RNA sequence: UGCUGUUGGGGGGGCAUUGAUCCGCGACCGGUCAUCGGUCACCUCGCGCGAGCAGCGCGUCGGUCGCGGGGAGCCAGUGGUGAGACCGACCCCGUUCCGA
Numbered sequence: 001u002g003c004u005g006u007u008g009g010g011g012g013g014g015c016a017u018u019g020a021u022c023c024g025c026g027a028c029c030g031g032u033c034a035u036c037g038g039u040c041a042c043c044u045c046g047c048g049c050g051a052g053c054a055g056c057g058c059g060u061c062g063g064u065c066g067c068g069g070g071g072a073g074c075c076a077g078u079g080g081u082g083a084g085a086c087c088g089a090c091c092c093c094g095u096u097c098c099g100a
Stems, first nucleotide, its partner, number of pairs: 001100001005096001007094005013075003022069008037087002039083005
Dot-bracket structure: (...(.(((((.(((......((((((((.......[[[[[[[..................))))))))...)))...]]]]]..]]..))))).)...)